[Rfam]
Rfam assigns this 106-nucleotide RNA to the family "cow-rumen-2 RNA".

RNA sequence: AACGAAGUUUAAUCUAGCAAAUUAAACAAAAAGCCGUCUUAUGCAGAACUAAAUGUAGCUGGAAUACAGGAAGACCGUUCCAUAAGUUAGUUCAUAAGCCAUCUUA
Numbered sequence: 001a002a003c004g005a006a007g008u009u010u011a012a013u014c015u016a017g018c019a020a021a022u023u024a025a026a027c028a029a030a031a032a033g034c035c036g037u038c039u040u041a042u043g044c045a046g047a048a049c050u051a052a053a054u055g056u057a058g059c060u061g062g063a064a065u066a067c068a069g070g071a072a073g074a075c076c077g078u079u080c081c082a083u084a085a086g087u088u089a090g091u092u093c094a095u096a097a098g099c100c101a102u103c104u105u106a
Stems, first nucleotide, its partner, number of pairs: 002078001007027007041102003044098001046093007060082004065077001069076002